Glycine riboswitch aptamer: a 91-nucleotide RNA from Devosia geojensis. Its Rfam clan is "Glycine riboswitch clan". Pairs were carried over by alignment from the consensus structure.
[Rfam]
RNA sequence: CUCUGGAAAGCGGACGGGCCCUUGGGCUGCGUCCCACCGAAGGAGCAACCGGACAUAGGUUCCGGGAAAUCUCUCAGGUGACGGGACAGAG
Numbered sequence: 001c002u003c004u005g006g007a008a009a010g011c012g013g014a015c016g017g018g019c020c021c022u023u024g025g026g027c028u029g030c031g032u033c034c035c036a037c038c039g040a041a042g043g044a045g046c047a048a049c050c051g052g053a054c055a056u057a058g059g060u061u062c063c064g065g066g067a068a069a070u071c072u073c074u075c076a077g078g079u080g081a082c083g084g085g086a087c088a089g090a091g
Stems, first nucleotide, its partner, number of pairs: 001091005012034004036079003039075002043073003049066002